[Rfam]
mir-34 microRNA precursor family: a 77-nucleotide RNA sequence from Scleropages formosus.
RNA sequence: GCUCCCCUGGCAGUGUCUUAGCUGGUUGUUGUGAGGAUUGACAGCAAAGCAAUCAGCAAGUAUACUGCCACAGGAAC
Numbered sequence: 001g002c003u004c005c006c007c008u009g010g011c012a013g014u015g016u017c018u019u020a021g022c023u024g025g026u027u028g029u030u031g032u033g034a035g036g037a038u039u040g041a042c043a044g045c046a047a048a049g050c051a052a053u054c055a056g057c058a059a060g061u062a063u064a065c066u067g068c069c070a071c072a073g074g075a076a077c
Stems, first nucleotide, its partner, number of pairs: 003075003009069002012066005018060002021057001023055008

Its Rfam clan is "mir-34 clan". Rfam describes the family as follows. Human mir-34a was discovered computationally and later experimentally verified. The mature sequence is excised from the 5' arm of the hairpin. Lineage of the source: Eukaryota > Vertebrata > Actinopteri > Osteoglossomorpha > Scleropages. Rfam 15.1 lists 2,256 matches to the family in 820 species. The literature on the family includes a 2003 paper in Science by Lim et al., "Vertebrate microRNA genes".